[Rfam]
RNA sequence: UCAUGAACUUUGUACUGCGCACAUAAUUUAUACGUGCUCUAAAAGGUCGUGUAGGGG
Numbered sequence: 001u002c003a004u005g006a007a008c009u010u011u012g013u014a015c016u017g018c019g020c021a022c023a024u025a026a027u028u029u030a031u032a033c034g035u036g037c038u039c040u041a042a043a044a045g046g047u048c049g050u051g052u053a054g055g056g057g
Stems, first nucleotide, its partner, number of pairs: 019037002022034001024032002
RNA: Plastid-ndhJ 3UTR RNA